This 107-nucleotide RNA sequence from Salicibibacter halophilus belongs to the Rfam family "TPP riboswitch aptamer (THI element)".
[Rfam]
RNA sequence: CUUUUCCACUAGGGGAGCCAGUGCUGGCUGAGACAAAAGGACUUCCUUUUAAACCCUUAGAACCUGAUCUGUGUAACAACAGCGUAGGGAAGUGGAUGCGUAAUGGC
Dot-bracket structure: .....(((((((((..((((....))))......(((((......)))))...)))).....((((..((((......))))..))))..)))))............